The record is a 58-nucleotide RNA from Streptomyces sp. PTY087I2, which matches "msiK RNA" in Rfam. The family's consensus secondary structure is taken from published work.
RNA sequence: ACCAGACCACUCCCUACUCGGAUCGUCCGGCACGUUCCUGCCGGUUGAGGAGAAGAUC
Numbered sequence: 001a002c003c004a005g006a007c008c009a010c011u012c013c014c015u016a017c018u019c020g021g022a023u024c025g026u027c028c029g030g031c032a033c034g035u036u037c038c039u040g041c042c043g044g045u046u047g048a049g050g051a052g053a054a055g056a057u058c
Stems, first nucleotide, its partner, number of pairs: 010050002014047001016045001027044006
Description: It is annotated as a cis-regulatory element.